[Rfam]
RNA sequence: UAUGGAUCUGUGAUGUUAUUUAAUACUGCGUUAUCUAUCUGAAACCUCACUAGAGGAUUUGAGGAGAAUUUAGUUUACUGAGAUCCAAA
Numbered sequence: 001u002a003u004g005g006a007u008c009u010g011u012g013a014u015g016u017u018a019u020u021u022a023a024u025a026c027u028g029c030g031u032u033a034u035c036u037a038u039c040u041g042a043a044a045c046c047u048c049a050c051u052a053g054a055g056g057a058u059u060u061g062a063g064g065a066g067a068a069u070u071u072a073g074u075u076u077a078c079u080g081a082g083a084u085c086c087a088a089a
Stems, first nucleotide, its partner, number of pairs: 001089001003087005
RNA: Small nucleolar RNA snoR27
Organism: Medicago truncatula